[Rfam]
RNA sequence: AAGAAAGUGACUGCCGCCCCGCACAGGGGCAACGCCAAUAGACCGACACGAAAACGGGAUCCGGCGAAAACCCUCGAAGCUUCAAAAAGCCCCCGCGCCGCGCGCGAUAA
Numbered sequence: 001a002a003g004a005a006a007g008u009g010a011c012u013g014c015c016g017c018c019c020c021g022c023a024c025a026g027g028g029g030c031a032a033c034g035c036c037a038a039u040a041g042a043c044c045g046a047c048a049c050g051a052a053a054a055c056g057g058g059a060u061c062c063g064g065c066g067a068a069a070a071c072c073c074u075c076g077a078a079g080c081u082u083c084a085a086a087a088a089g090c091c092c093c094c095g096c097g098c099c100g101c102g103c104g105c106g107a108u109a110a
Base pairs, nucleotide, nucleotide: 011079012078014076016030017029018028019027020026060067061066094104095103096102
RNA: Burkholderia sRNA Bp1_Cand684_SIPHT